[Rfam]
Rfam assigns this 160-nucleotide sequence from Pseudoxanthomonas spadix to the family "Xanthomonadaceae sRNA sX15".
For this family Rfam cites "Genome-wide transcriptome analysis of the plant pathogen Xanthomonas identifies sRNAs with putative virulence functions" (Schmidtke et al., Nucleic Acids Res, 2011).
NCBI's taxonomy places the organism under Bacteria, Pseudomonadati, Gammaproteobacteria, Lysobacteraceae, Pseudoxanthomonas spadix.
Rfam 15.1 lists 32 matches to the family in 24 species.
A search with the family's covariance model found it, with a score of 56 bits.
RNA sequence: GGAGAGAGCCGCCUCGAUCCUGCCCACGCUUGUGAAGUUCGAGCUUGAGCUCGUUCAACUGUUCGGGCUAGGGACGAGGUCGAUGUGCGGCGGCCCGGGCUCCUACACGUGCUUGGCAACACUGCGCUCCAUCGGCCUGCCGCACAUCGCUCUCCACCCA
Dot-bracket structure: ((((((.((.(((((...((((..((.........((...((((....)))).))....))..))))...)).....))).)(((((((((((((.............(((........)))...........)))).)))))))))).)))))).....